Notes: The record is an 84-nucleotide sequence from Populus trichocarpa, which matches "MIR6426 microRNA precursor family" in Rfam. The sequence is in the family's curated seed alignment. Its family is annotated with RISC complex and miRNA-mediated post-transcriptional gene silencing in the Gene Ontology.
RNA sequence: UUUCUUCUUCUUCUUCUGCACUUCCAUGUCUCUAUUGUUCACGUGAACAGUGGAGACAUGGAAGUGAAGAAGAAGAAGAAGAAG
Numbered sequence: 001u002u003u004c005u006u007c008u009u010c011u012u013c014u015u016c017u018g019c020a021c022u023u024c025c026a027u028g029u030c031u032c033u034a035u036u037g038u039u040c041a042c043g044u045g046a047a048c049a050g051u052g053g054a055g056a057c058a059u060g061g062a063a064g065u066g067a068a069g070a071a072g073a074a075g076a077a078g079a080a081g082a083a084g
Base pairs, nucleotide, nucleotide: 002083003082004081005080006079007078008077009076010075011074012073013072014071015070016069017068019066020065021064022063023062024061025060026059027058028057029056030055031054032053033052034051035050036049037048038047039046040045
The family's consensus secondary structure was predicted with RNAalifold. Taxonomically the source falls in Populus (Eukaryota, Mesangiospermae, fabids, Malpighiales).